[Rfam]
This 86-nucleotide RNA sequence from Evansella cellulosilytica belongs to the Rfam family "c-di-GMP-I riboswitch aptamer". From the family's description: GEMM was predicted in a large-scale screen for bacterial structured RNA regulatory elements. The source organism's lineage runs through Bacteria, Bacilli, Caryophanales, Evansella and Evansella cellulosilytica. Pairs were carried over by alignment from the consensus structure, which is taken from published work. It scores 68 bits against the family's covariance model.

RNA sequence: AAUACGAAACGGCAAAACCAUCGAAAGUUGGUGACGCAAAGCUAUAGGGGCUUCCUUCAUCUAGAAGAAGCCAGCCAGUUACCGAA
Numbered sequence: 001a002a003u004a005c006g007a008a009a010c011g012g013c014a015a016a017a018c019c020a021u022c023g024a025a026a027g028u029u030g031g032u033g034a035c036g037c038a039a040a041g042c043u044a045u046a047g048g049g050g051c052u053u054c055c056u057u058c059a060u061c062u063a064g065a066a067g068a069a070g071c072c073a074g075c076c077a078g079u080u081a082c083c084g085a086a
Stems, first nucleotide, its partner, number of pairs: 012037002017032004022027001040080004047076002049072003056066003